[Rfam]
RNA sequence: UCGGUUCCGGUUCACGCCGCACGCCUCCCAGAACGGGAGGGGCGACCCGGGACC
Numbered sequence: 001u002c003g004g005u006u007c008c009g010g011u012u013c014a015c016g017c018c019g020c021a022c023g024c025c026u027c028c029c030a031g032a033a034c035g036g037g038a039g040g041g042g043c044g045a046c047c048c049g050g051g052a053c054c
Base pairs, nucleotide, nucleotide: 003054004053005052007050008049009048010047015044016043017042018041020039022037

Rfam assigns this 54-nucleotide RNA sequence from Mycolicibacterium austroafricanum to the family "L31-Actinobacteria ribosomal protein leader". Lineage of the source: Bacteria > Actinomycetes > Mycobacteriales > Mycobacteriaceae > Mycobacterium (subgen. Mycolicibacterium). By type it is a cis-regulatory leader.